[Rfam]
RNA sequence: GUAGGAUAUGGAGAUUAUGUACCUGUAGGAACAUUUGGUAAAAUUCUGGGUGGUUUCUGUGCUAUCUCUGGGGUAUUAACUAUAGCUCUACCAGUUCCAGUUAUUGUAGCCAAU
Number, nucleotide and partner (000 for none) at each position: 001g114002u113003a000004g111005g110006a000007u108008a107009u106010g105011g104012a000013g102014a101015u100016u099017a000018u000019g097020u000021a095022c094023c000024u000025g000026u000027a000028g000029g000030a000031a000032c000033a000034u000035u000036u000037g077038g076039u075040a074041a000042a000043a000044u000045u000046c000047u000048g000049g063050g062051u061052g000053g000054u000055u000056u000057c000058u000059g000060u000061g051062c050063u049064a000065u000066c000067u000068c000069u000070g000071g000072g000073g000074u040075a039076u038077u037078a000079a000080c000081u000082a000083u000084a000085g000086c000087u000088c000089u000090a000091c000092c000093a000094g022095u021096u000097c019098c000099a016100g015101u014102u013103a000104u011105u010106g009107u008108a007109g000110c005111c004112a000113a002114u001